[Rfam]
RNA: Small nucleolar RNA snoR74
Organism: Glycine max
RNA sequence: AAAAAAGCAGGGGCAUGUUGCCUGUGUGAGCAGGCCUCUCGUAACCUUCAGGGACAUGAUAACCAUUGUUAUUGGGUGAACCUCUGAUCUCUGUUUGUGACUGAAAGGUUCAGUAAAUGAUGGAACACAU
Numbered sequence: 001a002a003a004a005a006a007g008c009a010g011g012g013g014c015a016u017g018u019u020g021c022c023u024g025u026g027u028g029a030g031c032a033g034g035c036c037u038c039u040c041g042u043a044a045c046c047u048u049c050a051g052g053g054a055c056a057u058g059a060u061a062a063c064c065a066u067u068g069u070u071a072u073u074g075g076g077u078g079a080a081c082c083u084c085u086g087a088u089c090u091c092u093g094u095u096u097g098u099g100a101c102u103g104a105a106a107g108g109u110u111c112a113g114u115a116a117a118u119g120a121u122g123g124a125a126c127a128c129a130u
Stems, first nucleotide, its partner, number of pairs: 005048003011037002014034001016032002063123008077112007